[Rfam]
RNA sequence: GGGCGGUGAUGACAAACCAUCAUUUCUCGAUUCUGAAUCGUUUAAGCCUUUUCCAGGACCAAUCCGACAUUGAUGAGUUCAUUUGUGCGUGUCUGAGCCUC
Number, nucleotide and partner (000 for none) at each position: 001g100002g099003g098004c097005g000006g000007u000008g000009a000010u000011g000012a000013c000014a000015a000016a000017c000018c000019a000020u000021c000022a000023u000024u000025u000026c000027u000028c000029g000030a000031u000032u000033c000034u000035g000036a000037a000038u000039c000040g000041u000042u000043u000044a000045a000046g000047c000048c000049u000050u000051u000052u000053c000054c000055a000056g000057g000058a000059c000060c000061a000062a000063u000064c000065c000066g000067a000068c000069a000070u000071u000072g000073a000074u000075g000076a000077g000078u000079u000080c000081a000082u000083u000084u000085g000086u000087g000088c000089g000090u000091g000092u000093c000094u000095g000096a000097g004098c003099c002100u001101c000
Shown here is a 101-nucleotide sequence from Colocasia esculenta, a member of the family "small nucleolar RNA snoR126".
Taxonomically the source falls in Colocasia (Eukaryota, Streptophyta, Embryophyta, Tracheophyta).
For this family Rfam cites "Mining small RNA sequencing data: a new approach to identify small nucleolar RNAs in Arabidopsis" (Chen and Wu, Nucleic Acids Res, 2009).
The base pairs follow the family's consensus structure, which was predicted with RNAalifold.
Its family is annotated with RNA processing and nucleolus in the Gene Ontology.
It is annotated as a C/D-box small nucleolar RNA.